[Rfam]
RNA: miR-430 microRNA precursor family
Organism: Etheostoma spectabile
RNA sequence: AGAACAACCCAAUCAAUAAGCACUGACUUGAGUUGUGUAUGCAGUAAGUGCUACUUGUUGGGGUAGUUUUA
Numbered sequence: 001a002g003a004a005c006a007a008c009c010c011a012a013u014c015a016a017u018a019a020g021c022a023c024u025g026a027c028u029u030g031a032g033u034u035g036u037g038u039a040u041g042c043a044g045u046a047a048g049u050g051c052u053a054c055u056u057g058u059u060g061g062g063g064u065a066g067u068u069u070u071a
Stems, first nucleotide, its partner, number of pairs: 004067002007064004014057003019052006026045003